Shown here is a 101-nucleotide sequence from Clostridium manihotivorum, a member of the family "SAM riboswitch aptamer (S box leader)". Taxonomically the source falls in Clostridium (Bacteria, Bacillati, Clostridia, Clostridiaceae). The family's consensus secondary structure is taken from published work. Its family is annotated with regulation of gene expression in the Gene Ontology. The family is grouped with related families in Rfam's "SAM clan".
[Rfam]
RNA sequence: UGCUUAUAAAGAGUAAGGGAGAGAAUGGGCUCGAUGAACUUACAGCAACCUACUAAGGUGUGGUGCUAAUACCUACCAUAUUUCAUAUGGGACUAUAAGAU
Numbered sequence: 001u002g003c004u005u006a007u008a009a010a011g012a013g014u015a016a017g018g019g020a021g022a023g024a025a026u027g028g029g030c031u032c033g034a035u036g037a038a039c040u041u042a043c044a045g046c047a048a049c050c051u052a053c054u055a056a057g058g059u060g061u062g063g064u065g066c067u068a069a070u071a072c073c074u075a076c077c078a079u080a081u082u083u084c085a086u087a088u089g090g091g092a093c094u095a096u097a098a099g100a101u
Stems, first nucleotide, its partner, number of pairs: 003099006013043005021032003026075004044067004049063002051060003076090006
Dot-bracket structure: ..((((((....(((((...(((..[[[[)))......)))))((((.(((((....))).))))))....]]]]((((((...))))))...))))))..